[Rfam]
RNA sequence: GUUUUAUGAUGAUCUCCAUGCGUGUCAACUGAUCCCAGAAUGCCCUGAUGCUCUGAUCUCCCUGCUAGCGUUCUGCCAGCAGGUGUAGGCAGGGUGUCAGUGCUCUGGGGCCAUGAUCAUUACAUAACUGUGGCUGAAAAC
Numbered sequence: 001g002u003u004u005u006a007u008g009a010u011g012a013u014c015u016c017c018a019u020g021c022g023u024g025u026c027a028a029c030u031g032a033u034c035c036c037a038g039a040a041u042g043c044c045c046u047g048a049u050g051c052u053c054u055g056a057u058c059u060c061c062c063u064g065c066u067a068g069c070g071u072u073c074u075g076c077c078a079g080c081a082g083g084u085g086u087a088g089g090c091a092g093g094g095u096g097u098c099a100g101u102g103c104u105c106u107g108g109g110g111c112c113a114u115g116a117u118c119a120u121u122a123c124a125u126a127a128c129u130g131u132g133g134c135u136g137a138a139a140a141c
Stems, first nucleotide, its partner, number of pairs: 001141004043102001045100007
This 141-nucleotide RNA sequence from Anguilla anguilla belongs to the Rfam family "Small nucleolar RNA SNORD10". On this family, see Huttenhofer et al., EMBO J 2001: "RNomics: an experimental approach that identifies 201 candidates for novel, small, non-messenger RNAs in mouse". The family's RNA type in Rfam is C/D-box small nucleolar RNA. Its family is annotated with nucleolus and RNA processing in the Gene Ontology. The organism belongs to Anguilla, within Eukaryota.